[Rfam]
RNA sequence: CACGAAAAAGGUAAACCCUGAGUGAUCAGGGGACGCAAAGUAGUGGGUCUUUAGUAAAUAAGCAUUUAUCCCAGAGAUUAGUUUAUAAAGACAGCCUUACUGCCGAAG
Numbered sequence: 001c002a003c004g005a006a007a008a009a010g011g012u013a014a015a016c017c018c019u020g021a022g023u024g025a026u027c028a029g030g031g032g033a034c035g036c037a038a039a040g041u042a043g044u045g046g047g048u049c050u051u052u053a054g055u056a057a058a059u060a061a062g063c064a065u066u067u068a069u070c071c072c073a074g075a076g077a078u079u080a081g082u083u084u085a086u087a088a089a090g091a092c093a094g095c096c097u098u099a100c101u102g103c104c105g106a107a108g
Stems, first nucleotide, its partner, number of pairs: 001108001003105002011036002016031006034094001039101004045096002047092007
Notes: Shown here is a 108-nucleotide sequence from Candidatus Brocadia sinica, a member of the family "c-di-GMP-I-GGC riboswitch aptamer".